RNA sequence: GAGUCUAACAUCUAUGCGAGUGUUUGGGUGUCAAACCCGUGCGCGUAAUGAAAGUGAACGGAGGUGGGAACCGCAAGGUGCACCAUCGACCGAUCCUGAUGUCUUCGGAAGGAUUUGAGUAAGAGCAUAGCUGUUGGGACCCGAAAGAUGGUGAACUAUGCGUGAAUAGGGUGAAGCCAGAGGAAACUCUGGUGGAGGCUCGCAGCGGUUCUGACGUGCAAAUCGAUCGUCAAAUUUGCGUAUAGGGGCGAAAGACUAAUCGAACCAUUUGCAAACAGCAAUACUAGAUGGUCAAAGGGCGGAGAGCCUUAGUCCCCACGGGGGCCACACUGCCAAACUGCGGGGAACGCCCACAGCCGGACGCCACCGCCCCCCCGCCGCAAGGUGGGAGGGGCACCCCGUUUACUCGGGGGUAAGGUAACAGCGCGCCCGGCGGGUCGAUCCGCAGCCGUCCCCCGAUCCGUCGGGGGGUGGUUCACAGACUAGACGGCAGUGGGCGCGGCGAGCGCUUAAGAUAUAGUCGAUCCAGCCCCUCAAGGGGCCGAGAGUAGUAGCUGGUU
Numbered sequence: 001g002a003g004u005c006u007a008a009c010a011u012c013u014a015u016g017c018g019a020g021u022g023u024u025u026g027g028g029u030g031u032c033a034a035a036c037c038c039g040u041g042c043g044c045g046u047a048a049u050g051a052a053a054g055u056g057a058a059c060g061g062a063g064g065u066g067g068g069a070a071c072c073g074c075a076a077g078g079u080g081c082a083c084c085a086u087c088g089a090c091c092g093a094u095c096c097u098g099a100u101g102u103c104u105u106c107g108g109a110a111g112g113a114u115u116u117g118a119g120u121a122a123g124a125g126c127a128u129a130g131c132u133g134u135u136g137g138g139a140c141c142c143g144a145a146a147g148a149u150g151g152u153g154a155a156c157u158a159u160g161c162g163u164g165a166a167u168a169g170g171g172u173g174a175a176g177c178c179a180g181a182g183g184a185a186a187c188u189c190u191g192g193u194g195g196a197g198g199c200u201c202g203c204a205g206c207g208g209u210u211c212u213g214a215c216g217u218g219c220a221a222a223u224c225g226a227u228c229g230u231c232a233a234a235u236u237u238g239c240g241u242a243u244a245g246g247g248g249c250g251a252a253a254g255a256c257u258a259a260u261c262g263a264a265c266c267a268u269u270u271g272c273a274a275a276c277a278g279c280a281a282u283a284c285u286a287g288a289u290g291g292u293c294a295a296a297g298g299g300c301g302g303a304g305a306g307c308c309u310u311a312g313u314c315c316c317c318a319c320g321g322g323g324g325c326c327a328c329a330c331u332g333c334c335a336a337a338c339u340g341c342g343g344g345g346a347a348c349g350c351c352c353a354c355a356g357c358c359g360g361a362c363g364c365c366a367c368c369g370c371c372c373c374c375c376c377g378c379c380g381c382a383a384g385g386u387g388g389g390a391g392g393g394g395c396a397c398c399c400c401g402u403u404u405a406c407u408c409g410g411g412g413g414u415a416a417g418g419u420a421a422c423a424g425c426g427c428g429c430c431c432g433g434c435g436g437g438u439c440g441a442u443c444c445g446c447a448g449c450c451g452u453c454c455c456c457c458g459a460u461c462c463g464u465c466g467g468g469g470g471g472u473g474g475u476u477c478a479c480a481g482a483c484u485a486g487a488c489g490g491c492a493g494u495g496g497g498c499g500c501g502g503c504g505a506g507c508g509c510u511u512a513a514g515a516u517a518u519a520g521u522c523g524a525u526c527c528a529g530c531c532c533c534u535c536a537a538g539g540g541g542c543c544g545a546g547a548g549u550a551g552u553a554g555c556u557g558g559u560u
Base pairs, nucleotide, nucleotide: 005137006136007135008134009133010132012130013129014128015127016126017125020044021043022042025039026038027037028036029035048055049054063087064086065085066084067083070079071078072077089120090119091117092116093115094113095112096111100107101106140558141557143555152548156245157244158243159242160241161240162239163238164237165236166235167233169201170200171199172198176193177192178191179190180189181188182187205230206229207228208227210226211225213224214223247543248542249541
The family of this 560-nucleotide part of an RNA from Venturia inaequalis is "Eukaryotic large subunit ribosomal RNA". Rfam links the family to the GO terms ribosome and structural constituent of ribosome. Pairs were carried over by alignment from the consensus structure, which is taken from published work. Its Rfam clan is "LSU clan". The family has 88 seed sequences and 107,465 matches in Rfam 15.1.